[Rfam]
RNA sequence: AAACGUGCAGGGUGGAGAUGCACAACGGUCGGAUCGCGUAGCUUUCAUGCAUUGAUCCAAGACGCACUUCUCGUCCGCCUCCGACAGUUGAUUCCUCCUCCUGAUUGAAUGCUUGUUUCAUGACAGCAAGCAGGAAACGUAGUCGCGGCACCGGCAUCUUCCGCCGAACGCUGCUGGACACGGGAAUGGUCCGCCGUUCCUGAGUACGUACCUGAGCACCGACCGUGAGAGAGUCGUGUGUGCCGAUUGCCGUUUCCGGUGGCCCCGGAAACCA
Number, nucleotide and partner (000 for none) at each position: 001a000002a000003a000004c000005g000006u000007g000008c000009a000010g000011g000012g000013u000014g098015g097016a096017g095018a000019u000020g000021c000022a000023c090024a089025a088026c087027g000028g085029u084030c083031g082032g081033a000034u000035c000036g078037c077038g076039u000040a052041g050042c049043u000044u000045u000046c000047a000048u000049g042050c041051a000052u040053u000054g000055a000056u000057c000058c000059a000060a000061g075062a074063c073064g072065c000066a000067c000068u000069u000070c000071u000072c064073g063074u062075c061076c038077g037078c036079c000080u000081c032082c031083g030084a029085c028086a000087g026088u025089u024090g023091a000092u000093u000094c000095c017096u016097c015098c014099u135100c134101c133102u132103g131104a000105u000106u000107g000108a000109a000110u000111g000112c000113u000114u000115g000116u000117u000118u000119c000120a000121u000122g000123a000124c000125a000126g000127c000128a000129a000130g000131c103132a102133g101134g100135a099136a000137a000138c208139g207140u206141a205142g179143u178144c177145g174146c173147g172148g171149c000150a000151c000152c166153g165154g164155c163156a000157u000158c000159u000160u000161c000162c000163g155164c154165c153166g152167a000168a000169c000170g000171c148172u147173g146174c145175u000176g000177g144178a143179c142180a000181c000182g000183g200184g199185a198186a197187u196188g195189g194190u000191c000192c000193g000194c189195c188196g187197u186198u185199c184200c183201u000202g000203a000204g000205u141206a140207c139208g138209u000210a000211c000212c000213u000214g000215a000216g241217c240218a239219c238220c236221g235222a234223c233224c000225g000226u000227g000228a000229g000230a000231g000232a000233g223234u222235c221236g220237u000238g219239u218240g217241u216242g000243c000244c000245g000246a000247u000248u000249g000250c000251c000252g272253u271254u270255u269256c268257c267258g266259g000260u000261g000262g000263c000264c000265c000266c258267g257268g256269a255270a254271a253272c252273c000274a000